[Rfam]
RNA sequence: AAUUUGAGCAAGUGGAAGACAGACGUCUUCUGCCCGGUUGAACCGUGAGAAGUUCGACAGCAGAUCUAAUGAACACAUCUGUGAGACAG
Numbered sequence: 001a002a003u004u005u006g007a008g009c010a011a012g013u014g015g016a017a018g019a020c021a022g023a024c025g026u027c028u029u030c031u032g033c034c035c036g037g038u039u040g041a042a043c044c045g046u047g048a049g050a051a052g053u054u055c056g057a058c059a060g061c062a063g064a065u066c067u068a069a070u071g072a073a074c075a076c077a078u079c080u081g082u083g084a085g086a087c088a089g
Stems, first nucleotide, its partner, number of pairs: 004089003012033008037058007060082006